[Rfam]
Nucleotides: 045
Stems, first nucleotide, its partner, number of pairs: 006027005016037001
Number, partner (000 for none) and nucleotide at each position: 001000a002000u003000a004000a005000a006027g007026c008025u009024g010023g011000u012000u013000c014000g015000a016037a017000a018000a019000c020000c021000u022000c023010c024009c025008a026007g027006u028000a029000u030000a031000a032000a033000a034000a035000a036000c037016u038000a039000g040000g041000c042000u043000a044000a045000g
Rfam assigns this 45-nucleotide RNA from bacterium D16-54 to the family "PreQ1 (pre queuosine) riboswitch aptamer".
The match comes from Rfam's covariance-model search (43 bits).
A reference for the family is Reader et al. (2004), "Identification of four genes necessary for biosynthesis of the modified nucleoside queuosine", J Biol Chem.
Rfam's curators write: This family is a bacterial riboswitch that binds to the metabolite preQ1, an intermediate in the biosynthesis of the modified nucleoside queuosine from GTP. One example of this riboswitch is located in the leader of the Bacillus subtilis ykvJKLM (queCDEF) operon which encodes four genes necessary for queuosine production. PreQ1 binding to the riboswitch aptamer is thought to induce premature transcription termination within the leader to down-regulate expression of these genes.